[Rfam]
RNA: Bacterial RNase P class A
RNA sequence: AGAGUAAGCGAGAUGGUUGCGGGCUGCUAACCCCAGUCCGAGGAAAGUCCGGGCUUCCGAAAGACCAAACUUGCUGGCUAAUCACCAGUGCGAGCGAUCGCGAGGAUAGUGCCACAGAAACAUACCGCCCUCAGCACUGCAGAUUUUGGAUUGAGGAUUUGAGAUUCAACCAUGAAUCUCAAAAUUCAACAAUCAACAAUCCCUGAGGGUAAGGGUGCAAAGGUGCGGUAAGAGCGCACCAGCAGCAUCGAGAGGUGCUGGCUCGGUAAACCCCGGUUGGAAGCAAGGCAGAAGGAGCAACGGUUGGUCUUUUACCAGCUCCAGUAGGAGGCAACUCCUGCGAGUCCGCUAGAGGUGUCUGGCAACAGCCAUCCCAGACAGAUAACCAUCCCCCAAUUGGGAGAACAGAACCCGGCUUAUGUCUUGCUCUUCCC
Numbered sequence: 001a002g003a004g005u006a007a008g009c010g011a012g013a014u015g016g017u018u019g020c021g022g023g024c025u026g027c028u029a030a031c032c033c034c035a036g037u038c039c040g041a042g043g044a045a046a047g048u049c050c051g052g053g054c055u056u057c058c059g060a061a062a063g064a065c066c067a068a069a070c071u072u073g074c075u076g077g078c079u080a081a082u083c084a085c086c087a088g089u090g091c092g093a094g095c096g097a098u099c100g101c102g103a104g105g106a107u108a109g110u111g112c113c114a115c116a117g118a119a120a121c122a123u124a125c126c127g128c129c130c131u132c133a134g135c136a137c138u139g140c141a142g143a144u145u146u147u148g149g150a151u152u153g154a155g156g157a158u159u160u161g162a163g164a165u166u167c168a169a170c171c172a173u174g175a176a177u178c179u180c181a182a183a184a185u186u187c188a189a190c191a192a193u194c195a196a197c198a199a200u201c202c203c204u205g206a207g208g209g210u211a212a213g214g215g216u217g218c219a220a221a222g223g224u225g226c227g228g229u230a231a232g233a234g235c236g237c238a239c240c241a242g243c244a245g246c247a248u249c250g251a252g253a254g255g256u257g258c259u260g261g262c263u264c265g266g267u268a269a270a271c272c273c274c275g276g277u278u279g280g281a282a283g284c285a286a287g288g289c290a291g292a293a294g295g296a297g298c299a300a301c302g303g304u305u306g307g308u309c310u311u312u313u314a315c316c317a318g319c320u321c322c323a324g325u326a327g328g329a330g331g332c333a334a335c336u337c338c339u340g341c342g343a344g345u346c347c348g349c350u351a352g353a354g355g356u357g358u359c360u361g362g363c364a365a366c367a368g369c370c371a372u373c374c375c376a377g378a379c380a381g382a383u384a385a386c387c388a389u390c391c392c393c394c395a396a397u398u399g400g401g402a403g404a405a406c407a408g409a410a411c412c413c414g415g416c417u418u419a420u421g422u423c424u425u426g427c428u429c430u431u432c433c434c
Base pairs, nucleotide, nucleotide: 001430002429003428004427005426006425007424008423011420012390013389014388015387016386017385018384020040021039022038023037024036025035026034045418046417047416049415050414051413052412053411054283055282056281057280066324068278069277070276072275073274074088075087076086077085089103090101091100092099093098104273105272109271110270111267112266113265125214126213127210128209129208130207131206132205133204134203222240223239224238225237226236227235242262243260244259245258246257247256248255249254287347288346293339294338295337296336297335318332319331320330322328354373355372356371357370359368360367361366